A member of the RNA family "Potassium channel RNA editing signal" from Phaedon cochleariae, 114 nucleotides long. Rfam classes the family as a cis-regulatory element. The base pairs follow the family's consensus structure, which is taken from published work. Its family is annotated with adenosine to inosine editing in the Gene Ontology. The literature on the family includes a 2004 paper in Nat Struct Mol Biol by Bhalla et al., "Control of human potassium channel inactivation by editing of a small mRNA hairpin".
[Rfam]
RNA sequence: GUGGGGUACGGCGACAUGGUGCCCAAGACCUACAUUGGUAUGUUCGUGGGAGCGCUGUGCGCAUUGGCUGGCGUCUUAACGAUAGCGUUGCCAGUGCCUGUCAUCGUUUCGAAC
Number, nucleotide and partner (000 for none) at each position: 001g114002u113003g000004g000005g110006g000007u000008a107009c106010g105011g104012c000013g102014a101015c100016a099017u000018g097019g000020u000021g095022c094023c000024c000025a000026a000027g000028a000029c000030c000031u000032a000033c000034a000035u000036u000037g077038g076039u000040a074041u000042g000043u000044u000045c000046g000047u000048g000049g000050g062051a000052g000053c000054g000055c000056u000057g000058u000059g000060c000061g000062c050063a000064u000065u000066g000067g000068c000069u000070g000071g000072c000073g000074u040075c000076u038077u037078a000079a000080c000081g000082a000083u000084a000085g000086c000087g000088u000089u000090g000091c000092c000093a000094g022095u021096g000097c018098c000099u016100g015101u014102c013103a000104u011105c010106g009107u008108u000109u000110c005111g000112a000113a002114c001